[Rfam]
RNA sequence: UCUGCUUCUACCUACUUCUGCUCCUGUUCUGCCUACAGCAGGGGCUGGAAGGUGGGCGGCAAGGAAACAGUUACAGUGUCUGGUCUCUGUUGCUUUGUACCAGUUGCAGAGCAUGAAGAUACUUAAAGCA
Dot-bracket structure: .((((............(.(((((((((........))))))))).)........))))................((((((...(((((.................))))).....))))))........
Numbered sequence: 001u002c003u004g005c006u007u008c009u010a011c012c013u014a015c016u017u018c019u020g021c022u023c024c025u026g027u028u029c030u031g032c033c034u035a036c037a038g039c040a041g042g043g044g045c046u047g048g049a050a051g052g053u054g055g056g057c058g059g060c061a062a063g064g065a066a067a068c069a070g071u072u073a074c075a076g077u078g079u080c081u082g083g084u085c086u087c088u089g090u091u092g093c094u095u096u097g098u099a100c101c102a103g104u105u106g107c108a109g110a111g112c113a114u115g116a117a118g119a120u121a122c123u124u125a126a127a128g129c130a
Stems, first nucleotide, its partner, number of pairs: 002059004018047001020045009076122006085111005
Shown here is a 130-nucleotide sequence from Crypturellus soui, a member of the family "Small nucleolar RNA SNORA5".
It is annotated as an H/ACA-box small nucleolar RNA.
Taxonomically the source falls in Crypturellus (Eukaryota, Deuterostomia, Sauropsida, Tinamidae).
It scores 40 bits against the family's covariance model.
The base pairs follow the family's consensus structure, which was predicted with RNAfold.
Rfam's curators write: ACA5 is a member of the H/ACA class of snoRNA that guide the sites of modification of uridines to pseudouridines.
Its family is annotated with RNA processing and nucleolus in the Gene Ontology.